[Rfam]
The family of this 107-nucleotide RNA sequence from Chanos chanos is "mir-223 microRNA precursor family". A search with the family's covariance model found it, with a score of 77 bits. Its family is annotated with RISC complex and miRNA-mediated post-transcriptional gene silencing in the Gene Ontology. Rfam 15.1 lists 674 matches to the family in 638 species.
RNA sequence: AAUGAAGAUGUCGACUCUUCUCUUAGAGUAUUUGACAGACUGUGCUGGGCACUCGUUUUGACAGGGGUGUCAGUUUGUCAAAUACCCCAAGAGAGGGGUCACUUAUC
Numbered sequence: 001a002a003u004g005a006a007g008a009u010g011u012c013g014a015c016u017c018u019u020c021u022c023u024u025a026g027a028g029u030a031u032u033u034g035a036c037a038g039a040c041u042g043u044g045c046u047g048g049g050c051a052c053u054c055g056u057u058u059u060g061a062c063a064g065g066g067g068u069g070u071c072a073g074u075u076u077g078u079c080a081a082a083u084a085c086c087c088c089a090a091g092a093g094a095g096g097g098g099u100c101a102c103u104u105a106u107c
Base pairs, nucleotide, nucleotide: 020093021092022091023090026087028085029084030083031082032081033080034079035078036077037076038075039074040073041072048071049070050069051068053066054065